Shown here is a 125-nucleotide RNA from Mesobacillus subterraneus, a member of the family "PyrR binding site". This family represents the PyrR binding site and terminator structure. This RNA structure is found upstream of a variety of genes involved in pyrimidine biosynthesis and transport. The alignment also includes a portion of the antiterminator structure. The base pairs follow the family's consensus structure, which is taken from published work. Rfam classes the family as a cis-regulatory element. The source organism's lineage runs through Bacteria, Bacillati, Bacillota, Bacillaceae and Mesobacillus. It scores 56 bits against the family's covariance model.
RNA sequence: CAGUCCUUUAAGACAGUCCCGUGAGGCUGAGAAGGAAACGGAUCAACAAAGGCAUUGCGUUUGCCUUGUUGUAAUUGACUCUACCCGUUUACCCUCUUGCCAAACAGGCAGGAGGGUUUUUUGAA
Numbered sequence: 001c002a003g004u005c006c007u008u009u010a011a012g013a014c015a016g017u018c019c020c021g022u023g024a025g026g027c028u029g030a031g032a033a034g035g036a037a038a039c040g041g042a043u044c045a046a047c048a049a050a051g052g053c054a055u056u057g058c059g060u061u062u063g064c065c066u067u068g069u070u071g072u073a074a075u076u077g078a079c080u081c082u083a084c085c086c087g088u089u090u091a092c093c094c095u096c097u098u099g100c101c102a103a104a105c106a107g108g109c110a111g112g113a114g115g116g117u118u119u120u121u122u123g124a125a
Stems, first nucleotide, its partner, number of pairs: 004036006014029005046070001049067006091117011